[Rfam]
Rfam assigns this 161-nucleotide RNA from Streptomyces capitiformicae to the family "c-di-AMP riboswitch aptamer (ydaO/yuaA leader)". The match comes from Rfam's covariance-model search (61 bits). The base pairs follow the family's consensus structure.
RNA sequence: GCCGCGUACCGACCCGAUCCACGGCAGGAGCGGGGGACCCACAGGUAGUACCGCCUGUUCCAGUCUCCGGAACGGCUAGGGGUUAAGCCGUGCGCAAGCACGGCCGGGCAUCUCCAGUCCGCACCCGACAGCUCACCUCGCAGGCGCCGGAGAGGAAAACG
Numbered sequence: 001g002c003c004g005c006g007u008a009c010c011g012a013c014c015c016g017a018u019c020c021a022c023g024g025c026a027g028g029a030g031c032g033g034g035g036g037a038c039c040c041a042c043a044g045g046u047a048g049u050a051c052c053g054c055c056u057g058u059u060c061c062a063g064u065c066u067c068c069g070g071a072a073c074g075g076c077u078a079g080g081g082g083u084u085a086a087g088c089c090g091u092g093c094g095c096a097a098g099c100a101c102g103g104c105c106g107g108g109c110a111u112c113u114c115c116a117g118u119c120c121g122c123a124c125c126c127g128a129c130a131g132c133u134c135a136c137c138u139c140g141c142a143g144g145c146g147c148c149g150g151a152g153a154g155g156a157a158a159a160c161g
Base pairs, nucleotide, nucleotide: 001145002144003143007029009027030141031140032139033138034137035136040079080126081125082124088103089102090101091100106120107119108118109117